RNA: Bacterial large signal recognition particle RNA
RNA sequence: CCGUGCUAGAUGGGGAGGUAGCGGUGCCCUGUACUUGCAAUCCGCUAUAGCAAGAUUGAAUCCCUUCUCGAGGCUUCGUUUCCGUGAGGUCUGACCUUUGUAAGUGGUGUUGACGUCUGGGUUCUGUGCAACGGAAAUUCGUGAAUCCUGUCAGGUCCGGAAGGAAGCAGCAGUAAGCGGACUCUUCUGUGUGCCGCAGAGUCGCCUGGGCUGAGCUAACUGCUUAGGUAACGCUCAUGGAUUCAUUGCCGACAGAAGGUGCACGG
Numbered sequence: 001c002c003g004u005g006c007u008a009g010a011u012g013g014g015g016a017g018g019u020a021g022c023g024g025u026g027c028c029c030u031g032u033a034c035u036u037g038c039a040a041u042c043c044g045c046u047a048u049a050g051c052a053a054g055a056u057u058g059a060a061u062c063c064c065u066u067c068u069c070g071a072g073g074c075u076u077c078g079u080u081u082c083c084g085u086g087a088g089g090u091c092u093g094a095c096c097u098u099u100g101u102a103a104g105u106g107g108u109g110u111u112g113a114c115g116u117c118u119g120g121g122u123u124c125u126g127u128g129c130a131a132c133g134g135a136a137a138u139u140c141g142u143g144a145a146u147c148c149u150g151u152c153a154g155g156u157c158c159g160g161a162a163g164g165a166a167g168c169a170g171c172a173g174u175a176a177g178c179g180g181a182c183u184c185u186u187c188u189g190u191g192u193g194c195c196g197c198a199g200a201g202u203c204g205c206c207u208g209g210g211c212u213g214a215g216c217u218a219a220c221u222g223c224u225u226a227g228g229u230a231a232c233g234c235u236c237a238u239g240g241a242u243u244c245a246u247u248g249c250c251g252a253c254a255g256a257a258g259g260u261g262c263a264c265g266g
Stems, first nucleotide, its partner, number of pairs: 001266006009057003012030004017025001019023001034054005063259006072250003081241008092230002096227002100223002104220002106217003115211008123200006129191002132189005138181005148173004156165003